[Rfam]
RNA sequence: AUUCAGAAAAGGCAAAUCUUUCGAAAGAGAGAGACGCAAAGCUACAGACCUAAAGGAAAUUCCCAUGGUGGCUGAGCUACCUGA
Numbered sequence: 001a002u003u004c005a006g007a008a009a010a011g012g013c014a015a016a017u018c019u020u021u022c023g024a025a026a027g028a029g030a031g032a033g034a035c036g037c038a039a040a041g042c043u044a045c046a047g048a049c050c051u052a053a054a055g056g057a058a059a060u061u062c063c064c065a066u067g068g069u070g071g072c073u074g075a076g077c078u079a080c081c082u083g084a
Stems, first nucleotide, its partner, number of pairs: 012037002017032006040078004045074003048069003055063003
RNA: c-di-GMP-I riboswitch aptamer